[Rfam]
RNA sequence: CCGGCAACGUUCCUUGGUCAUGGUCUGGCAGAUGAGACCACGGCCAUGGGUCGCCAUGAAGUUGAUCGCCGCCGGGGUCACCAACUCGGCAGCCAUGAUGA
Number, nucleotide and partner (000 for none) at each position: 001c000002c000003g055004g054005c053006a000007a051008c050009g000010u000011u000012c023013c022014u000015u020016g000017g000018u000019c000020a015021u000022g013023g012024u000025c000026u000027g000028g000029c000030a000031g000032a047033u046034g045035a000036g044037a000038c042039c000040a000041c000042g038043g000044c036045c034046a033047u032048g000049g000050g008051u007052c000053g005054c004055c003056a000057u000058g000059a000060a000061g000062u000063u101064g000065a099066u098067c097068g093069c092070c000071g090072c089073c088074g087075g085076g000077g000078u000079c000080a000081c000082c000083a000084a000085c075086u000087c074088g073089g072090c071091a000092g069093c068094c000095a000096u000097g067098a066099u065100g000101a063
Shown here is a 101-nucleotide RNA sequence from Shewanella salipaludis, a member of the family "Vibrio RNA AS9". On this family, see Liu et al., Nucleic Acids Res 2009: "Experimental discovery of sRNAs in Vibrio cholerae by direct cloning, 5S/tRNA depletion and parallel sequencing". Rfam describes the family as follows. Identified by direct cloning an parallel sequencing experiments with 5S/tRNA depletion. Confirmed by Northern blot. The family's RNA type in Rfam is antisense RNA. NCBI's taxonomy places the organism under Bacteria, Pseudomonadota, Gammaproteobacteria, Alteromonadales, Shewanella.